This 70-nucleotide sequence from Leishmania major belongs to the Rfam family "Trypanosomatid snoRNA TB11Cs5H3". Rfam 15.1 lists 12 matches to the family in 11 species. Rfam links the family to the GO terms RNA processing and nucleolus. The family's RNA type in Rfam is H/ACA-box small nucleolar RNA.
[Rfam]
RNA sequence: CGCACAGUUCGAAGGCCGUCAUCCCCUGUACUACAUCUUAGGGUGCUUUCGGUUCAAAGGCUGUGCCAGA
Numbered sequence: 001c002g003c004a005c006a007g008u009u010c011g012a013a014g015g016c017c018g019u020c021a022u023c024c025c026c027u028g029u030a031c032u033a034c035a036u037c038u039u040a041g042g043g044u045g046c047u048u049u050c051g052g053u054u055c056a057a058a059g060g061c062u063g064u065g066c067c068a069g070a
Base pairs, nucleotide, nucleotide: 002066003065004064005063006062007061008060009059016052017051018050021049028046029045030044031043